The family of this 114-nucleotide sequence from Nitratireductor indicus is "Alphaproteobacterial ar14". The base pairs follow the family's consensus structure. The organism belongs to Nitratireductor indicus, within Bacteria. The family's RNA type in Rfam is small RNA. From the family's description: Smr14C2 was renamed NfeR1 (Nodule Formation Efficiency RNA) highly expressed in salt stress and during the symbiotic interaction on legume roots.

RNA sequence: GAGUUACCCGACGGCAAAUCCUCCUCCCAUUGUCGUCGGGGACGGGUCGGAACCUCCUCCUCCCUUCGGCCCAAUCUACGAAAAAGACCGGGAUCCUCCCCCCGGUCUUUUUUG
Numbered sequence: 001g002a003g004u005u006a007c008c009c010g011a012c013g014g015c016a017a018a019u020c021c022u023c024c025u026c027c028c029a030u031u032g033u034c035g036u037c038g039g040g041g042a043c044g045g046g047u048c049g050g051a052a053c054c055u056c057c058u059c060c061u062c063c064c065u066u067c068g069g070c071c072c073a074a075u076c077u078a079c080g081a082a083a084a085a086g087a088c089c090g091g092g093a094u095c096c097u098c099c100c101c102c103c104g105g106u107c108u109u110u111u112u113u114g
Stems, first nucleotide, its partner, number of pairs: 007040003011036007045072002048069001050067001052066001082111011